[Rfam]
RNA sequence: UGUUGCGCACACGGGAGUCCGGUAGGCCGGGCUGAGAGGAAGGUCAUCAACCUUCGACCGUCGAACCUGAUCUGGAUCAUGCCAGCGCAGGGAGACACUCUUGACAUACC
Numbered sequence: 001u002g003u004u005g006c007g008c009a010c011a012c013g014g015g016a017g018u019c020c021g022g023u024a025g026g027c028c029g030g031g032c033u034g035a036g037a038g039g040a041a042g043g044u045c046a047u048c049a050a051c052c053u054u055c056g057a058c059c060g061u062c063g064a065a066c067c068u069g070a071u072c073u074g075g076a077u078c079a080u081g082c083c084a085g086c087g088c089a090g091g092g093a094g095a096c097a098c099u100c101u102u103g104a105c106a107u108a109c110c
Stems, first nucleotide, its partner, number of pairs: 010094001011061004017032005039055005066091004072085004